[Rfam]
Rfam assigns this 76-nucleotide RNA from Legionella massiliensis to the family "RAGATH-32 RNA".
RNA sequence: AGGGCUGGACGUUCAGUUGGGAACCGUGUCAAGGAACUCUGUCAUUCGGCAGAGCGUGUCGAAAGACUCUAAGUCA
Numbered sequence: 001a002g003g004g005c006u007g008g009a010c011g012u013u014c015a016g017u018u019g020g021g022a023a024c025c026g027u028g029u030c031a032a033g034g035a036a037c038u039c040u041g042u043c044a045u046u047c048g049g050c051a052g053a054g055c056g057u058g059u060c061g062a063a064a065g066a067c068u069c070u071a072a073g074u075c076a
Stems, first nucleotide, its partner, number of pairs: 037054007056069001058067003

It scores 54 bits against the family's covariance model.
Taxonomically the source falls in Legionella (Bacteria, Pseudomonadati, Pseudomonadota, Legionellales).